[Rfam]
RNA sequence: UCUUCAUUGUUCACACUAUCUCACCGGUCAAGGAUGCGAGAGAGUGUGCAAAAGGAAGAGA
Dot-bracket structure: (((((.(..(.((((((.((((...............)))).)))))).)..).)))))..